[Rfam]
RNA: Bacterial large subunit ribosomal RNA, nucleotides 840 to 1400
RNA sequence: UUCCACGAAACAUAUGUUAGUAUGACUUCUACGUAUUAUUAUUAAUAAUUAUAGAUUUAUGGAGGUACAGCACGUCCGCAUGCAAUAAACCUUUAUAUUUAAUUACCAAAAGUAUUUAAAUAUAAAAUUAAAUUUGGGGGGCCUUGAAAUCCUACCUUUGCAUGUAAAUCUCGGAAUUACAUAAAUUGAUAGUAGAAAUUCAGACUGCUCAUGCUAAGGUGGGCAGUCAAAACGGAAACAGCCGUGAGCAUGUAUUAAGGUCCCAAAAUUGAUUAUUAAGUGAAAUUAAGGAAGUUAUUCUCUUAAUGCAACUAUGAAGUGAGCUUGGUAGUCGCUAGUUUUUAAAGACCGUGUAACAACGCAGUAGUCCAGGUUACUUUUUAAUUUAUCCCUCUGGGUUUAAAUUAAUAUAACCAAUAUCUCUUCUAUCUUCUCGAUAGGAGGGAAGGAGUCUAGCACCGAAAAUUUAACGGGUCUAAAUAAUCUACCGAAAUCAUGCCUUUUUAUUCCUUUUUUAAUUAUAUUAUUAUGAUUAUAUAAGAAUAGAAACGGAUAGUGGAA
Numbered sequence: 001u002u003c004c005a006c007g008a009a010a011c012a013u014a015u016g017u018u019a020g021u022a023u024g025a026c027u028u029c030u031a032c033g034u035a036u037u038a039u040u041a042u043u044a045a046u047a048a049u050u051a052u053a054g055a056u057u058u059a060u061g062g063a064g065g066u067a068c069a070g071c072a073c074g075u076c077c078g079c080a081u082g083c084a085a086u087a088a089a090c091c092u093u094u095a096u097a098u099u100u101a102a103u104u105a106c107c108a109a110a111a112g113u114a115u116u117u118a119a120a121u122a123u124a125a126a127a128u129u130a131a132a133u134u135u136g137g138g139g140g141g142c143c144u145u146g147a148a149a150u151c152c153u154a155c156c157u158u159u160g161c162a163u164g165u166a167a168a169u170c171u172c173g174g175a176a177u178u179a180c181a182u183a184a185a186u187u188g189a190u191a192g193u194a195g196a197a198a199u200u201c202a203g204a205c206u207g208c209u210c211a212u213g214c215u216a217a218g219g220u221g222g223g224c225a226g227u228c229a230a231a232a233c234g235g236a237a238a239c240a241g242c243c244g245u246g247a248g249c250a251u252g253u254a255u256u257a258a259g260g261u262c263c264c265a266a267a268a269u270u271g272a273u274u275a276u277u278a279a280g281u282g283a284a285a286u287u288a289a290g291g292a293a294g295u296u297a298u299u300c301u302c303u304u305a306a307u308g309c310a311a312c313u314a315u316g317a318a319g320u321g322a323g324c325u326u327g328g329u330a331g332u333c334g335c336u337a338g339u340u341u342u343u344a345a346a347g348a349c350c351g352u353g354u355a356a357c358a359a360c361g362c363a364g365u366a367g368u369c370c371a372g373g374u375u376a377c378u379u380u381u382u383a384a385u386u387u388a389u390c391c392c393u394c395u396g397g398g399u400u401u402a403a404a405u406u407a408a409u410a411u412a413a414c415c416a417a418u419a420u421c422u423c424u425u426c427u428a429u430c431u432u433c434u435c436g437a438u439a440g441g442a443g444g445g446a447a448g449g450a451g452u453c454u455a456g457c458a459c460c461g462a463a464a465a466u467u468u469a470a471c472g473g474g475u476c477u478a479a480a481u482a483a484u485c486u487a488c489c490g491a492a493a494u495c496a497u498g499c500c501u502u503u504u505u506a507u508u509c510c511u512u513u514u515u516u517a518a519u520u521a522u523a524u525u526a527u528u529a530u531g532a533u534u535a536u537a538u539a540a541g542a543a544u545a546g547a548a549a550c551g552g553a554u555a556g557u558g559g560a561a
Stems, first nucleotide, its partner, number of pairs: 001561006011024005027197006038186003042183001046179002052173001053171002057167005203228010233244003248499004254494002259489003268486001271485006290460002294457004300451004312440004317341003322336003342346001347435001351433001500551001501549009